[Rfam]
RNA sequence: AAAAAGGCUCUUUUCAGAGCCACCCACUUUGAUCAUAAAGGGCUG
Numbered sequence: 001a002a003a004a005a006g007g008c009u010c011u012u013u014u015c016a017g018a019g020c021c022a023c024c025c026a027c028u029u030u031g032a033u034c035a036u037a038a039a040g041g042g043c044u045g
Stems, first nucleotide, its partner, number of pairs: 006021006
Rfam assigns this 45-nucleotide sequence from Lepidothrix coronata to the family "Histone 3' UTR stem-loop". Pairs were carried over by alignment from the consensus structure, which is taken from published work. It is annotated as a cis-regulatory element. Rfam's curators write: The mRNAs of metazoan histone genes lack a poly-A tail. 3' end processing occurs at a site between a highly conserved stem-loop (modelled by this family) and a purine rich region around 20 nts downstream (the histone downstream element, or HDE). The stem-loop is bound by a 31 kDa stem-loop binding protein (SLBP - also termed the histone hairpin binding protein, or HBP). Together with U7 snRNA binding of the HDE, SLBP binding nucleate s the formation of the processing complex. The histone 3' UTR stem-loop is also involved in nucleocytoplasmic transport of the mRNA, and in stability regulation and translation efficiency in the cytoplasm.